[Rfam]
Shown here is a 48-nucleotide sequence from Massilia forsythiae, a member of the family "Guanidine-II riboswitch aptamer (mini-ykkC)". Rfam's curators write: Simpler in structure and has fewer highly conserved nucleotide positions than the ykkC-yxkD leader. The source organism's lineage runs through Bacteria, Pseudomonadota, Betaproteobacteria, Oxalobacteraceae and Massilia.
RNA sequence: CCGGGAGGACGGCCUCCCCCAUCGUGGAACAUGUCCGGGACGGCCCGG
Numbered sequence: 001c002c003g004g005g006a007g008g009a010c011g012g013c014c015u016c017c018c019c020c021a022u023c024g025u026g027g028a029a030c031a032u033g034u035c036c037g038g039g040a041c042g043g044c045c046c047g048g
Stems, first nucleotide, its partner, number of pairs: 003018006035048005
The base pairs follow the family's consensus structure, which is taken from published work.